[Rfam]
RNA: Listeria sRNA rliI
Organism: Listeria innocua
Nucleotides: 239
Stems, first nucleotide, its partner, number of pairs: 008177003013172002016168003020164003025159012040082006047075002051070006083147008093137002097133007109121004178202011207238002211234010
Number, partner (000 for none) and nucleotide at each position: 001000u002000a003000u004000u005000a006000a007000u008177g009176a010175a011000a012000a013172g014171a015000g016168g017167u018166g019000a020164g021163a022162u023000g024000a025159c026158a027157u028156g029155u030154u031153u032152c033151u034150u035149u036148u037000g038000a039000a040082u041081g042080c043079g044078c045077g046000a047075a048074c049000u050000a051070g052069u053068a054067u055066a056065g057000c058000u059000a060000a061000a062000u063000u064000u065056u066055u067054g068053u069052a070051u071000a072000u073000u074048g075047u076000c077045c078044g079043u080042g081041c082040a083147a084146u085145u086144u087143u088142u089141u090140c091000c092000g093137g094136u095000a096000u097133u098132g099131c100130a101129g102128u103127u104000a105000c106000a107000u108000u109121g110120g111119u112118g113000a114000a115000g116000u117000c118112u119111g120110c121109c122000c123000a124000a125000a126000a127103a128102a129101c130100u131099g132098u133097a134000u135000a136094a137093c138000u139000a140090g141089a142088a143087a144086a145085a146084a147083u148036g149035a150034g151033a152032g153031a154030a155029g156028c157027a158026u159025g160000g161000a162022g163021u164020c165000a166018c167017g168016c169000a170000a171014u172013c173000g174000g175010u176009u177008u178202g179201u180200a181199u182198a183197g184196u185195g186194c187193u188192a189000a190000a191000u192188u193187a194186g195185u196184a197183u198182u199181a200180u201179a202178c203000u204000u205000a206000u207238a208237a209000u210000u211234g212233g213232c214231g215230u216229c217228g218227g219226g220225c221000g222000c223000u224000u225220g226219u227218c228217u229216g230215a231214c232213g233212c234211u235000u236000u237208u238207u239000u